[Rfam]
The record is a 114-nucleotide sequence from Panacibacter microcysteis, which matches "SAM riboswitch aptamer (S box leader)" in Rfam.
RNA sequence: UACUUAUCAAGAAAGGCAGAGGGAUUAGGCCCGAUGAAGCCUUGGCAACCCUUACAAGCUACUCACUUGUAAGAAGGUGCCAACUCCGGCCCGCGUUGCGGGCAGAGAUAAGUC
Numbered sequence: 001u002a003c004u005u006a007u008c009a010a011g012a013a014a015g016g017c018a019g020a021g022g023g024a025u026u027a028g029g030c031c032c033g034a035u036g037a038a039g040c041c042u043u044g045g046c047a048a049c050c051c052u053u054a055c056a057a058g059c060u061a062c063u064c065a066c067u068u069g070u071a072a073g074a075a076g077g078u079g080c081c082a083a084c085u086c087c088g089g090c091c092c093g094c095g096u097u098g099c100g101g102g103c104a105g106a107g108a109u110a111a112g113u114c
Stems, first nucleotide, its partner, number of pairs: 002113007013043005021032003028087002044081004049077002051073008085106001089103006